[Rfam]
RNA sequence: AUUUAAUUAGAUGGUGACACGUGUCACUACCUUAUUGGAGGGAUUUAAUUAUUUAUAUUUAAUUAAAUAAAUUUAUUUUCAUCCUCCAAUUAGGUGGUGACACGUGUCACCACCU
Numbered sequence: 001a002u003u004u005a006a007u008u009a010g011a012u013g014g015u016g017a018c019a020c021g022u023g024u025c026a027c028u029a030c031c032u033u034a035u036u037g038g039a040g041g042g043a044u045u046u047a048a049u050u051a052u053u054u055a056u057a058u059u060u061a062a063u064u065a066a067a068u069a070a071a072u073u074u075a076u077u078u079u080c081a082u083c084c085u086c087c088a089a090u091u092a093g094g095u096g097g098u099g100a101c102a103c104g105u106g107u108c109a110c111c112a113c114c115u
Stems, first nucleotide, its partner, number of pairs: 021103002025099003029095004034090003